Record summary
The family of this 77-nucleotide RNA sequence from Cinara cedri is "Small nucleolar RNA R38". Pairs were carried over by alignment from the consensus structure, which was predicted with PFOLD. It scores 46 bits against the family's covariance model. Rfam classes the family as a C/D-box small nucleolar RNA. Rfam's curators write: snoR38 is a C/D box small nucleolar RNA conserved across yeast, human, Arabidopsis and rice. It is encoded in the intron of elongation factor-1 gamma in both pombe and cerevisiae. snoR38 guides the methylation of 2'-O-ribose sites in 28S rRNA.
RNA sequence: AUUAAUUUAUGAUGAAUAUUAUCAGUUAUCCCUGUCAGAUGUUUCCAUGUUGAUAACUCUUUUUAACUGAAAUAUAU
Numbered sequence: 001a002u003u004a005a006u007u008u009a010u011g012a013u014g015a016a017u018a019u020u021a022u023c024a025g026u027u028a029u030c031c032c033u034g035u036c037a038g039a040u041g042u043u044u045c046c047a048u049g050u051u052g053a054u055a056a057c058u059c060u061u062u063u064u065a066a067c068u069g070a071a072a073u074a075u076a077u
Stems, first nucleotide, its partner, number of pairs: 001077002005073003
Dot-bracket structure: ((..(((...............................................................)))..))